RNA sequence: UUAUGCAGAACAUCAGCUAAGUUCGCCACGUCCUGUGGCAAUGCCGAUGAUCUCAUCCUGUGAG
Numbered sequence: 001u002u003a004u005g006c007a008g009a010a011c012a013u014c015a016g017c018u019a020a021g022u023u024c025g026c027c028a029c030g031u032c033c034u035g036u037g038g039c040a041a042u043g044c045c046g047a048u049g050a051u052c053u054c055a056u057c058c059u060g061u062g063a064g
Stems, first nucleotide, its partner, number of pairs: 011049004016044002025039005051063002054060001
This 64-nucleotide RNA from Bacillus sp. J14TS2 belongs to the Rfam family "Bacillaceae-1 RNA". The match comes from Rfam's covariance-model search (52 bits). Pairs were carried over by alignment from the consensus structure, which is taken from published work. NCBI's taxonomy places the organism under Bacteria, Bacilli, Caryophanales, Bacillaceae, Bacillus.